RNA sequence: GGGGGCGCUGUAAACAUCCUUGACUGGAAGCUGCUUGAAGAGUCUGGCUUUCAGUCGGAUGUUUGCAGCGUUCGG
Numbered sequence: 001g002g003g004g005g006c007g008c009u010g011u012a013a014a015c016a017u018c019c020u021u022g023a024c025u026g027g028a029a030g031c032u033g034c035u036u037g038a039a040g041a042g043u044c045u046g047g048c049u050u051u052c053a054g055u056c057g058g059a060u061g062u063u064u065g066c067a068g069c070g071u072u073c074g075g
Base pairs, nucleotide, nucleotide: 003073004072005071006070008068009067010066011065012064013063014062015061016060017059018058019057023055024054025053026052027051028050029049030048031047032046

Rfam assigns this 75-nucleotide RNA sequence from Synaphobranchus kaupii to the family "mir-30 microRNA precursor family". Its family is annotated with RISC complex and gene silencing by miRNA in the Gene Ontology. Lineage of the source: Eukaryota > Actinopterygii > Teleostei > Anguilliformes > Synaphobranchus. It scores 63 bits against the family's covariance model.